[Rfam]
RNA sequence: AAAUAGGCUUUCUAGGGUUCCACGAUGCGAAUGCGUAUCGGAUCGGUCCGAGAGAGAGCGCGUCUUCCUAAGCGAAGAUGAACACGGCGGGAUAAAAACCCGGGAGUA
Numbered sequence: 001a002a003a004u005a006g007g008c009u010u011u012c013u014a015g016g017g018u019u020c021c022a023c024g025a026u027g028c029g030a031a032u033g034c035g036u037a038u039c040g041g042a043u044c045g046g047u048c049c050g051a052g053a054g055a056g057a058g059c060g061c062g063u064c065u066u067c068c069u070a071a072g073c074g075a076a077g078a079u080g081a082a083c084a085c086g087g088c089g090g091g092a093u094a095a096a097a098a099c100c101c102g103g104g105a106g107u108a
Base pairs, nucleotide, nucleotide: 007059008058009057010056011055012054015049016048020046021045022043023040024039025038026037027036028035061080062079063078064077065076066075067074083103085106089101090100091099
RNA: Guanidine-I riboswitch aptamer